[Rfam]
RNA sequence: AUUAUAAUGAUGAAAAUAUCCAGGAAGUGCCGUCUGAUUCUUUUUGUUGACGAUAAUUAAAAAUUCUGACCAUAAUUA
Numbered sequence: 001a002u003u004a005u006a007a008u009g010a011u012g013a014a015a016a017u018a019u020c021c022a023g024g025a026a027g028u029g030c031c032g033u034c035u036g037a038u039u040c041u042u043u044u045u046g047u048u049g050a051c052g053a054u055a056a057u058u059a060a061a062a063a064u065u066c067u068g069a070c071c072a073u074a075a076u077u078a
Stems, first nucleotide, its partner, number of pairs: 005078004
Notes: The record is a 78-nucleotide RNA from Plasmodium berghei, which matches "small nucleolar RNA snoR28" in Rfam. It is one of the family's seed sequences. Its family is annotated with RNA processing and nucleolus in the Gene Ontology. NCBI's taxonomy places the organism under Eukaryota, Sar, Aconoidasida, Plasmodium, Vinckeia.